[Rfam]
RNA: c-di-AMP riboswitch aptamer (ydaO/yuaA leader)
RNA sequence: AUUUUUUAAUCGCUGAGUUACGGCACUUUUGCCGUGAGCGGGGGAACCAUAUAUUGGGGUGAAUCCUGAAUUUUCAGGUAGGGUUAGUCUCGACCAAUCCGAAUCCGUCAGCUAACUUCGUAAGCGUUGGGGAGAAAGUGA
Numbered sequence: 001a002u003u004u005u006u007u008a009a010u011c012g013c014u015g016a017g018u019u020a021c022g023g024c025a026c027u028u029u030u031g032c033c034g035u036g037a038g039c040g041g042g043g044g045a046a047c048c049a050u051a052u053a054u055u056g057g058g059g060u061g062a063a064u065c066c067u068g069a070a071u072u073u074u075c076a077g078g079u080a081g082g083g084u085u086a087g088u089c090u091c092g093a094c095c096a097a098u099c100c101g102a103a104u105c106c107g108u109c110a111g112c113u114a115a116c117u118u119c120g121u122a123a124g125c126g127u128u129g130g131g132g133a134g135a136a137a138g139u140g141a
Stems, first nucleotide, its partner, number of pairs: 011126004018037007038121006048056002057106003065078004081100004
Dot-bracket structure: ..........((((...(((((((......)))))))((((((....((.....))(((.....((((......))))..((((............))))...))).........)))))).))))...............